[Rfam]
RNA sequence: AUGUUUCUGUCUUUGGUUAUCUAGCUGUAUGAGUGCUGUCGAUUCUUCAUAAAGCUAGAUAACCGAAAGUAGAAAUGA
Numbered sequence: 001a002u003g004u005u006u007c008u009g010u011c012u013u014u015g016g017u018u019a020u021c022u023a024g025c026u027g028u029a030u031g032a033g034u035g036c037u038g039u040c041g042a043u044u045c046u047u048c049a050u051a052a053a054g055c056u057a058g059a060u061a062a063c064c065g066a067a068a069g070u071a072g073a074a075a076u077g078a
Stems, first nucleotide, its partner, number of pairs: 002077004007072004012067015028051006
Annotation
The record is a 78-nucleotide RNA sequence from Bucorvus abyssinicus, which matches "mir-9/mir-79 microRNA precursor family" in Rfam. A search with the family's covariance model found it, with a score of 80 bits. Rfam links the family to the GO terms miRNA-mediated post-transcriptional gene silencing and RISC complex.